RNA: Fluoride riboswitch aptamer (crcB RNA motif)
Organism: Chryseobacterium sp. 3008163
RNA sequence: UGCGUCAAAGGAAAUGGUGCUCUUCCUUACCCAACCGCCUUAAAAAAGCUGAUGACGCCUGAUUACUA
Numbered sequence: 001u002g003c004g005u006c007a008a009a010g011g012a013a014a015u016g017g018u019g020c021u022c023u024u025c026c027u028u029a030c031c032c033a034a035c036c037g038c039c040u041u042a043a044a045a046a047a048g049c050u051g052a053u054g055a056c057g058c059c060u061g062a063u064u065a066c067u068a
Stems, first nucleotide, its partner, number of pairs: 010026004016059004021054001037049002040046001